[Rfam]
RNA sequence: GUGAAAUAAAUCACAUACAAACAUACACCCCUUUGUUUGAGCGUGAACAUUUCUCCCAUCCCCUUUGUGUAACAUAGAAAGGCGCCUUCCGGUUUCGGAAGGCGCCUUU
Numbered sequence: 001g002u003g004a005a006a007u008a009a010a011u012c013a014c015a016u017a018c019a020a021a022c023a024u025a026c027a028c029c030c031c032u033u034u035g036u037u038u039g040a041g042c043g044u045g046a047a048c049a050u051u052u053c054u055c056c057c058a059u060c061c062c063c064u065u066u067g068u069g070u071a072a073c074a075u076a077g078a079a080a081g082g083c084g085c086c087u088u089c090c091g092g093u094u095u096c097g098g099a100a101g102g103c104g105c106c107u108u109u
Base pairs, nucleotide, nucleotide: 003053004052005051006050007049011046012045013044014043018039019038020037021036022035023034070076081106082105083104084103085102086101087100088099089098090097091096
RNA: RNA Staph. aureus E (RoxS)